This 96-nucleotide RNA sequence from [Candida] boidinii belongs to the Rfam family "Small nucleolar RNA snR57".
A search with the family's covariance model found it, with a score of 89 bits.
The pairing is the family consensus, mapped onto this sequence.
The family's RNA type in Rfam is C/D-box small nucleolar RNA.
Its family is annotated with RNA processing and nucleolus in the Gene Ontology.

RNA sequence: UUUCUAAUGAUUAAAAAAAUUGAUAUAACUUUUCAUGACUGAGGAUGUAUAUGCAGGACAAAAAAAUAUUUAGGAAUUCUUCGUUUAUGAUCGAAA
Numbered sequence: 001u002u003u004c005u006a007a008u009g010a011u012u013a014a015a016a017a018a019a020u021u022g023a024u025a026u027a028a029c030u031u032u033u034c035a036u037g038a039c040u041g042a043g044g045a046u047g048u049a050u051a052u053g054c055a056g057g058a059c060a061a062a063a064a065a066a067u068a069u070u071u072a073g074g075a076a077u078u079c080u081u082c083g084u085u086u087a088u089g090a091u092c093g094a095a096a
Stems, first nucleotide, its partner, number of pairs: 001096004